[Rfam]
RNA sequence: GCCCCGUUAGCUCAGUGGUAGAGCAUUAGGCUUUUAACCUAAGGGUCGUGGGUUCGAUACCCCCACGGGGCG
Dot-bracket structure: (((((((..((((.......)))).(((((.......))))).....(.(((.......))).)))))))).
A member of the RNA family "tRNA" from Ordospora colligata, 72 nucleotides long. A search with the family's covariance model found it, with a score of 69 bits.